The family of this 85-nucleotide sequence from Xanthomonas albilineans is "Xanthomonas sRNA sX9". NCBI's taxonomy places the organism under Bacteria, Pseudomonadota, Lysobacterales, Xanthomonas, Xanthomonas albilineans. The family has 16 seed sequences and 309 matches in Rfam 15.1. By type it is a small RNA.
RNA sequence: AUGUACCGCAUGAACCGUCUAUAUACUGCGGUUCCUGCGCGCUGUCCGUGCCCACCCGACAGCGACUCGCGACGUUUUGUUAGCC
Dot-bracket structure: .((((................))))...((((.(....).))))...........(.(((((..............))))).)..